[Rfam]
RNA sequence: GACGGGAUUUUGAGAUUAUGCUACAUCAUCACUUGAAAAUUAAAAAAAUAAUAUAAAUUUUCAGGUGAUGACGUGGUACAAUCUUAGAGUAUCGC
Numbered sequence: 001g002a003c004g005g006g007a008u009u010u011u012g013a014g015a016u017u018a019u020g021c022u023a024c025a026u027c028a029u030c031a032c033u034u035g036a037a038a039a040u041u042a043a044a045a046a047a048a049u050a051a052u053a054u055a056a057a058u059u060u061u062c063a064g065g066u067g068a069u070g071a072c073g074u075g076g077u078a079c080a081a082u083c084u085u086a087g088a089g090u091a092u093c094g095c
Base pairs, nucleotide, nucleotide: 003094004093005092007090008089009088012085013084014083015082016081017080019078020077021076022075023074024073026071027070028069029068030067031066032065033064034063035062036061037060038059039058040057041056
RNA: MIR8675 microRNA precursor family
Organism: Gossypium laxum